The record is a 97-nucleotide sequence from a Bathymodiolus platifrons methanotrophic gill symbiont, which matches "t44 RNA" in Rfam.
Pairs were carried over by alignment from the consensus structure, which was predicted with LocARNA.
A search with the family's covariance model found it, with a score of 68 bits.
Rfam classes the family as a small RNA.
Lineage of the source: Bacteria > Pseudomonadati > Pseudomonadota > Gammaproteobacteria.
[Rfam]
RNA sequence: AUAUAAAACACAUUAAAACUCACAUCUAUCGUCACAGUUGGUGGGGUGCUGGUUCUUUAUGGGGCUGGUUUCUAACUGGGAUAGGUGGAGGCGUAAC
Numbered sequence: 001a002u003a004u005a006a007a008a009c010a011c012a013u014u015a016a017a018a019c020u021c022a023c024a025u026c027u028a029u030c031g032u033c034a035c036a037g038u039u040g041g042u043g044g045g046g047u048g049c050u051g052g053u054u055c056u057u058u059a060u061g062g063g064g065c066u067g068g069u070u071u072c073u074a075a076c077u078g079g080g081a082u083a084g085g086u087g088g089a090g091g092c093g094u095a096a097c
Stems, first nucleotide, its partner, number of pairs: 023087008035078007043070001048069005